[Rfam]
RNA: Archaeal large subunit ribosomal RNA, nucleotides 1310 to 1673
RNA sequence: GUUAGUAACAGCAAAUAUGGGUGAGAAUCCCAUACACCGUAAGCACACGGUUUUCUUCGCAACGCUCGUCAGCGGAGAGUUAGGCGAUCCUAAGAGGCAGGCCAAUCACCUUGCCUCAAAAGGGAAGCUGGUUAAUAUUCCAGCCCCUAACGCGUAGGCGUGGCAACACAAGGCAGAUUUCUGACGCUUGGGGAUAGGUCCGUAAGAAAGUGCAAAGGGCUGCAGAGUCUCGUUAUGAGGAGAAGCAGCUAAAUGAACUGUUGGACUGAUUUCUUGAGCCCGUGAAAAGGGAAUCUGCAACGAUCGCGUUAGUCCGUACCUAGAACUAGUACAAGUGUUGCUGGCUUAAAAGGCCAAGGUGUGA
Numbered sequence: 001g002u003u004a005g006u007a008a009c010a011g012c013a014a015a016u017a018u019g020g021g022u023g024a025g026a027a028u029c030c031c032a033u034a035c036a037c038c039g040u041a042a043g044c045a046c047a048c049g050g051u052u053u054u055c056u057u058c059g060c061a062a063c064g065c066u067c068g069u070c071a072g073c074g075g076a077g078a079g080u081u082a083g084g085c086g087a088u089c090c091u092a093a094g095a096g097g098c099a100g101g102c103c104a105a106u107c108a109c110c111u112u113g114c115c116u117c118a119a120a121a122g123g124g125a126a127g128c129u130g131g132u133u134a135a136u137a138u139u140c141c142a143g144c145c146c147c148u149a150a151c152g153c154g155u156a157g158g159c160g161u162g163g164c165a166a167c168a169c170a171a172g173g174c175a176g177a178u179u180u181c182u183g184a185c186g187c188u189u190g191g192g193g194a195u196a197g198g199u200c201c202g203u204a205a206g207a208a209a210g211u212g213c214a215a216a217g218g219g220c221u222g223c224a225g226a227g228u229c230u231c232g233u234u235a236u237g238a239g240g241a242g243a244a245g246c247a248g249c250u251a252a253a254u255g256a257a258c259u260g261u262u263g264g265a266c267u268g269a270u271u272u273c274u275u276g277a278g279c280c281c282g283u284g285a286a287a288a289g290g291g292a293a294u295c296u297g298c299a300a301c302g303a304u305c306g307c308g309u310u311a312g313u314c315c316g317u318a319c320c321u322a323g324a325a326c327u328a329g330u331a332c333a334a335g336u337g338u339u340g341c342u343g344g345c346u347u348a349a350a351a352g353g354c355c356a357a358g359g360u361g362u363g364a
Stems, first nucleotide, its partner, number of pairs: 016034006035361004045338002049320002054078006064070001085316002089123002094117006100110002127144005147312008180291003186279009197267005210258002213255001219249005229239003326335002342356004